Record summary
This 109-nucleotide RNA from Marinitenerispora sediminis belongs to the Rfam family "SAM (S-adenosyl methionine) riboswitch aptamer". Rfam 15.1 lists 2,360 matches to the family in 1,305 species. Pairs were carried over by alignment from the consensus structure, which is taken from published work. The source organism's lineage runs through Bacteria, Actinomycetota, Streptosporangiales, Nocardiopsidaceae and Marinitenerispora.

[Rfam]
RNA sequence: GGUCAAGAGUGCCAGCGCGAAGAUCCGGCUUGCUGGACGGCAACCUUCUGCACAGCGGGGUGCCCCCGGAGUUGAUGACCUGGCUGCGGGGACGCGGCAAGCGUGCACG
Number, nucleotide and partner (000 for none) at each position: 001g080002g079003u078004c077005a000006a000007g000008a000009g038010u000011g000012c036013c035014a034015g033016c032017g000018c000019g000020a000021a030022g029023a000024u000025c000026c000027g000028g000029c022030u021031u000032g016033c015034u014035g013036g012037a000038c009039g064040g063041c062042a000043a000044c060045c059046u058047u000048c055049u054050g000051c000052a000053c000054a049055g048056c000057g000058g046059g045060g044061u000062g041063c040064c039065c000066c000067c000068g000069g000070a000071g000072u000073u000074g000075a000076u000077g004078a003079c002080c001081u000082g000083g098084c097085u096086g095087c094088g093089g000090g000091g000092a000093c088094g087095c086096g085097g084098c083099a000100a000101g000102c000103g000104u000105g000106c000107a000108c000109g000